[Rfam]
RNA sequence: GUCCCUGACAGAGCUACCACCUUAACUGAGUGCCGGAGAUAAGCGCCGGGAGGGACGUACUUU
Numbered sequence: 001g002u003c004c005c006u007g008a009c010a011g012a013g014c015u016a017c018c019a020c021c022u023u024a025a026c027u028g029a030g031u032g033c034c035g036g037a038g039a040u041a042a043g044c045g046c047c048g049g050g051a052g053g054g055a056c057g058u059a060c061u062u063u
Stems, first nucleotide, its partner, number of pairs: 002055004013031003033049004038044001
RNA: rydB RNA